[Rfam]
RNA sequence: UGAUGUUAACGAGUUGAAACACAGAAUUACAUAAUGAGAUACGUUCUCAAAAAUUAUUCUGGGAAAAGUCCCCGGACCCAGACCCGAGAGGGUGUAUUUGAAAGAAUACCAUCCGUGUGGUUAUAUGCCCCAGACACUUGCGCUUCUGGUAAUGAACUUAGUGAACCUUGCGUUUGUCGCGGUGAUAGUCAGUUUACAUAAUAGAUAUUUCAACAAUAUACACAAUGGGGCUUAGCGUUGACAUC
Numbered sequence: 001u002g003a004u005g006u007u008a009a010c011g012a013g014u015u016g017a018a019a020c021a022c023a024g025a026a027u028u029a030c031a032u033a034a035u036g037a038g039a040u041a042c043g044u045u046c047u048c049a050a051a052a053a054u055u056a057u058u059c060u061g062g063g064a065a066a067a068g069u070c071c072c073c074g075g076a077c078c079c080a081g082a083c084c085c086g087a088g089a090g091g092g093u094g095u096a097u098u099u100g101a102a103a104g105a106a107u108a109c110c111a112u113c114c115g116u117g118u119g120g121u122u123a124u125a126u127g128c129c130c131c132a133g134a135c136a137c138u139u140g141c142g143c144u145u146c147u148g149g150u151a152a153u154g155a156a157c158u159u160a161g162u163g164a165a166c167c168u169u170g171c172g173u174u175u176g177u178c179g180c181g182g183u184g185a186u187a188g189u190c191a192g193u194u195u196a197c198a199u200a201a202u203a204g205a206u207a208u209u210u211c212a213a214c215a216a217u218a219u220a221c222a223c224a225a226u227g228g229g230g231c232u233u234a235g236c237g238u239u240g241a242c243a244u245c
Stems, first nucleotide, its partner, number of pairs: 002245008013214006022061006036048004066233003070230004082093004094109006126184001130182002133178004140173004148167003157161001
Dot-bracket structure: .((((((((...((((((...((((((........((((.....)))).......))))))....[[[.[[[[........((((....))))((((((....))))))................(...((.((((...((((....(((......(...)...)))..)))).))))..)).)........................))))))............]]]]]]]....))))))))
Rfam assigns this 245-nucleotide RNA from Intoshia linei to the family "RNase MRP". By type it is a ribozyme. The base pairs follow the family's consensus structure, which is taken from published work. The source organism's lineage runs through Eukaryota, Bilateria, Spiralia, Orthonectida and Intoshia. RNase MRP is an enzymatically active ribonucleoprotein with two distinct roles in eukaryotes.